A member of the RNA family "tRNA" from Actinomadura sp. KC345, 73 nucleotides long.
The family's consensus secondary structure is taken from published work.
A search with the family's covariance model found it, with a score of 70 bits.
[Rfam]
RNA sequence: CUCCCCGUAGCUCAGCGGACAGAGCGCCGGCCUCCGAAGCCGGAAGCCGCAGGUUCGAUUCCUGCCGGGGAGG
Numbered sequence: 001c002u003c004c005c006c007g008u009a010g011c012u013c014a015g016c017g018g019a020c021a022g023a024g025c026g027c028c029g030g031c032c033u034c035c036g037a038a039g040c041c042g043g044a045a046g047c048c049g050c051a052g053g054u055u056c057g058a059u060u061c062c063u064g065c066c067g068g069g070g071a072g073g
Stems, first nucleotide, its partner, number of pairs: 001072007010025004027043005049065005
Dot-bracket structure: (((((((..((((........)))).(((((.......))))).....(((((.......)))))))))))).